[Rfam]
RNA sequence: AAAACUAGAGUUGUGUUCAACAACCGAUUUCAUAAAUUUGCUUUCCGAGUAGCCCCUUUGCAAGGGGCUUUUUUUAUUUU
Numbered sequence: 001a002a003a004a005c006u007a008g009a010g011u012u013g014u015g016u017u018c019a020a021c022a023a024c025c026g027a028u029u030u031c032a033u034a035a036a037u038u039u040g041c042u043u044u045c046c047g048a049g050u051a052g053c054c055c056c057u058u059u060g061c062a063a064g065g066g067g068c069u070u071u072u073u074u075u076a077u078u079u080u
Stems, first nucleotide, its partner, number of pairs: 001075004007069002022042001024040001026038003053067006
Rfam assigns this 80-nucleotide RNA from Pseudohaemophilus paraphrohaemolyticus to the family "Aggregatibacter sRNA 20".
For this family Rfam cites "Small RNA repertoires and their intraspecies variation in Aggregatibacter actinomycetemcomitans" (Oogai et al., DNA Res, 2017).
Lineage of the source: Bacteria > Pseudomonadati > Gammaproteobacteria > Pasteurellaceae > Pseudohaemophilus.
Validated by RT-PCR and Northern blot.
By type it is a small RNA.